[Rfam]
RNA sequence: GAGGGACGCAGCGACUGGCGGCACGGGGAUGGUCGAACCAUCGGGGAGCUCGUCACGGGAGUCGACCGCCUGGGCUCCCCGG
Numbered sequence: 001g002a003g004g005g006a007c008g009c010a011g012c013g014a015c016u017g018g019c020g021g022c023a024c025g026g027g028g029a030u031g032g033u034c035g036a037a038c039c040a041u042c043g044g045g046g047a048g049c050u051c052g053u054c055a056c057g058g059g060a061g062u063c064g065a066c067c068g069c070c071u072g073g074g075c076u077c078c079c080c081g082g
Stems, first nucleotide, its partner, number of pairs: 003056001005054004010050003015045002017070005029041004059077005
The family of this 82-nucleotide RNA sequence from Actinoplanes siamensis is "ZMP/ZTP riboswitch aptamer (pfl RNA motif)".
Taxonomically the source falls in Actinoplanes (Bacteria, Bacillati, Actinomycetota, Actinomycetes).
Pairs were carried over by alignment from the consensus structure, which is taken from published work.